[Rfam]
RNA sequence: AUAGGAAAUCGGUAGGUGAGGUUACCACAGGGAUCUGGGACACCUAAGAUUGCUGCCGCUAAAUUGUGGAGACACAAUGCGCUGGUCAACAGGUUAUGUCGGCGAUAAGGCAUAACCUAACGCAGUUUUUAUGCCCUGUGAUACUAAAGCUUGUACGUGAAAAAGGAC
Numbered sequence: 001a002u003a004g005g006a007a008a009u010c011g012g013u014a015g016g017u018g019a020g021g022u023u024a025c026c027a028c029a030g031g032g033a034u035c036u037g038g039g040a041c042a043c044c045u046a047a048g049a050u051u052g053c054u055g056c057c058g059c060u061a062a063a064u065u066g067u068g069g070a071g072a073c074a075c076a077a078u079g080c081g082c083u084g085g086u087c088a089a090c091a092g093g094u095u096a097u098g099u100c101g102g103c104g105a106u107a108a109g110g111c112a113u114a115a116c117c118u119a120a121c122g123c124a125g126u127u128u129u130u131a132u133g134c135c136c137u138g139u140g141a142u143a144c145u146a147a148a149g150c151u152u153g154u155a156c157g158u159g160a161a162a163a164a165g166g167a168c
Stems, first nucleotide, its partner, number of pairs: 009162001011156001013108001015151003020145003026140007049126005056084001058082002065076004092117004098111003
RNA: M-box riboswitch aptamer (ykoK leader)